[Rfam]
RNA sequence: AGAGGUCAAGAGUUUGAGGUCCUAGCAGAAGUGCUCACAAGGCAGCCACGUCAGAUUCCAGUGAACCUGCAAAUUCUGCU
Numbered sequence: 001a002g003a004g005g006u007c008a009a010g011a012g013u014u015u016g017a018g019g020u021c022c023u024a025g026c027a028g029a030a031g032u033g034c035u036c037a038c039a040a041g042g043c044a045g046c047c048a049c050g051u052c053a054g055a056u057u058c059c060a061g062u063g064a065a066c067c068u069g070c071a072a073a074u075u076c077u078g079c080u
Stems, first nucleotide, its partner, number of pairs: 018047003024080007031043002052069003056065003
Rfam assigns this 80-nucleotide RNA sequence from Crocodylus porosus to the family "Mammalian CPEB3 ribozyme".
Pairs were carried over by alignment from the consensus structure, which is taken from published work.
Rfam's curators write: The mammalian CPEB3 ribozyme is a self cleaving RNA located in the second intron of the CPEB3 gene which belongs to a family of genes regulating messenger RNA polyadenylation. This ribozyme is highly conserved and found only in mammals.
The organism belongs to Crocodylus, within Eukaryota.
The literature on the family includes a 2006 paper in Science by Salehi-Ashtiani et al., "A genomewide search for ribozymes reveals an HDV-like sequence in the human CPEB3 gene".